[Rfam]
RNA sequence: GCUUUCCUUGUCUUGAGUGAGCUGCUCAAUGAAUGUCUAGUGAGAGUAGUCCUGCUGACACCAUAACAACACAUAUGCAUCAUCUGGGCUCCUGCCCAGAGUGUGGUGCAAUUUUUGGAAAC
Numbered sequence: 001g002c003u004u005u006c007c008u009u010g011u012c013u014u015g016a017g018u019g020a021g022c023u024g025c026u027c028a029a030u031g032a033a034u035g036u037c038u039a040g041u042g043a044g045a046g047u048a049g050u051c052c053u054g055c056u057g058a059c060a061c062c063a064u065a066a067c068a069a070c071a072c073a074u075a076u077g078c079a080u081c082a083u084c085u086g087g088g089c090u091c092c093u094g095c096c097c098a099g100a101g102u103g104u105g106g107u108g109c110a111a112u113u114u115u116u117g118g119a120a121a122c
Stems, first nucleotide, its partner, number of pairs: 005019001007017003021050007033041002077109006084099006
About this RNA:
U4atac minor spliceosomal RNA: a 122-nucleotide RNA sequence from Perca fluviatilis. The family is grouped with related families in Rfam's "U4 clan". The source organism's lineage runs through Eukaryota, Deuterostomia, Neopterygii, Percinae and Perca.